[Rfam]
RNA sequence: UUUCCCUAUCUAGCGCCAGACCUUUUUAGAUAAAAGGUUAACGAGGAAAAGAGUGAUCGAAAAUUCGGCGGAUGCUCUUUCGUACCGGCUCCGGUGCGGGAUAUACCGGCAAAUAUGCAGGUGACUGCAAAACAAAUACGGUAUAACGGAGUUUA
Numbered sequence: 001u002u003u004c005c006c007u008a009u010c011u012a013g014c015g016c017c018a019g020a021c022c023u024u025u026u027u028a029g030a031u032a033a034a035a036g037g038u039u040a041a042c043g044a045g046g047a048a049a050a051g052a053g054u055g056a057u058c059g060a061a062a063a064u065u066c067g068g069c070g071g072a073u074g075c076u077c078u079u080u081c082g083u084a085c086c087g088g089c090u091c092c093g094g095u096g097c098g099g100g101a102u103a104u105a106c107c108g109g110c111a112a113a114u115a116u117g118c119a120g121g122u123g124a125c126u127g128c129a130a131a132a133c134a135a136a137u138a139c140g141g142u143a144u145a146a147c148g149g150a151g152u153u154u155a
Stems, first nucleotide, its partner, number of pairs: 020038007048080005057068004081098006102145007116129005
Rfam assigns this 155-nucleotide sequence from Lachnospiraceae bacterium 10-1 to the family "glmS glucosamine-6-phosphate activated ribozyme aptamer". The match comes from Rfam's covariance-model search (84 bits). The family's consensus secondary structure is taken from published work. NCBI's taxonomy places the organism under Bacteria, Bacillati, Clostridia, Lachnospirales, Lachnospiraceae.